The record is a 147-nucleotide sequence from Acetobacter pomorum, which matches "FMN riboswitch aptamer (RFN element)" in Rfam. Lineage of the source: Bacteria > Alphaproteobacteria > Acetobacterales > Acetobacter > Acetobacter pomorum.
RNA sequence: UGAUGUUCUCAGGGCAGGGUGCAAAUCCCUACCGGCGGUAAGCAGCGCAAAGCGUUGUAAGCCCGCGAGCGCUCGCUUCUGGCGGGGUCAGCAGAUCCGGUGCAAUUCCGGGGCCGACGGUGAUAGUCCGGAUGGAAGAGAACAGAA
Numbered sequence: 001u002g003a004u005g006u007u008c009u010c011a012g013g014g015c016a017g018g019g020u021g022c023a024a025a026u027c028c029c030u031a032c033c034g035g036c037g038g039u040a041a042g043c044a045g046c047g048c049a050a051a052g053c054g055u056u057g058u059a060a061g062c063c064c065g066c067g068a069g070c071g072c073u074c075g076c077u078u079c080u081g082g083c084g085g086g087g088u089c090a091g092c093a094g095a096u097c098c099g100g101u102g103c104a105a106u107u108c109c110g111g112g113g114c115c116g117a118c119g120g121u122g123a124u125a126g127u128c129c130g131g132a133u134g135g136a137a138g139a140g141a142a143c144a145g146a147a
Stems, first nucleotide, its partner, number of pairs: 004144007017029003031127002033116002035066004061114002069092002096112005118130003